[Rfam]
RNA sequence: GUAGAUACUCAUCCUACUCCUUAUGACAGCAUAGCUUCAUAAACCUCAGGAUGAUGUAGAGCUAAUUGCCAGUGCCUAUGGUCCACGUUAUAGAUGAGUAAGCGUAUGGUCUUUUCAUCACAAACCGGACACGACGUUGAGUGAGGCACUAUACCGUCUGUAGACCUGAUUGUAUUUAUACACCUGUCUUAUUUGACAGGUGUUUUUUU
Numbered sequence: 001g002u003a004g005a006u007a008c009u010c011a012u013c014c015u016a017c018u019c020c021u022u023a024u025g026a027c028a029g030c031a032u033a034g035c036u037u038c039a040u041a042a043a044c045c046u047c048a049g050g051a052u053g054a055u056g057u058a059g060a061g062c063u064a065a066u067u068g069c070c071a072g073u074g075c076c077u078a079u080g081g082u083c084c085a086c087g088u089u090a091u092a093g094a095u096g097a098g099u100a101a102g103c104g105u106a107u108g109g110u111c112u113u114u115u116c117a118u119c120a121c122a123a124a125c126c127g128g129a130c131a132c133g134a135c136g137u138u139g140a141g142u143g144a145g146g147c148a149c150u151a152u153a154c155c156g157u158c159u160g161u162a163g164a165c166c167u168g169a170u171u172g173u174a175u176u177u178a179u180a181c182a183c184c185u186g187u188c189u190u191a192u193u194u195g196a197c198a199g200g201u202g203u204u205u206u207u208u209u
Stems, first nucleotide, its partner, number of pairs: 001062002006058003009054004014050002027034001071150007081130004093119006156165003180203009

A member of the RNA family "GlmZ RNA activator of glmS mRNA" from Xenorhabdus cabanillasii, 209 nucleotides long. Rfam classes the family as a small RNA. The organism belongs to Xenorhabdus, within Bacteria. A reference for the family is Righetti et al. (2016), "Temperature-responsive in vitro RNA structurome of Yersinia pseudotuberculosis", Proc Natl Acad Sci U S A. A search with the family's covariance model found it, with a score of 138 bits. Rfam's curators write: This RNA was discovered in E. coli during a large scale screen.